[Rfam]
RNA sequence: AGCAUAAGAUCAAAGACUAAGAACGCCACUUCCUGUGGCAACGUCUUUGUGACCCCACCUCGUGUGGG
Numbered sequence: 001a002g003c004a005u006a007a008g009a010u011c012a013a014a015g016a017c018u019a020a021g022a023a024c025g026c027c028a029c030u031u032c033c034u035g036u037g038g039c040a041a042c043g044u045c046u047u048u049g050u051g052a053c054c055c056c057a058c059c060u061c062g063u064g065u066g067g068g
Stems, first nucleotide, its partner, number of pairs: 011049007025039005054068005
Source information:
This 68-nucleotide RNA sequence from Bacillus sp. HNG belongs to the Rfam family "Bacillaceae-1 RNA". Rfam classes the family as a small RNA. A search with the family's covariance model found it, with a score of 65 bits. Taxonomically the source falls in Bacillus (Bacteria, Bacillota, Bacilli, Caryophanales).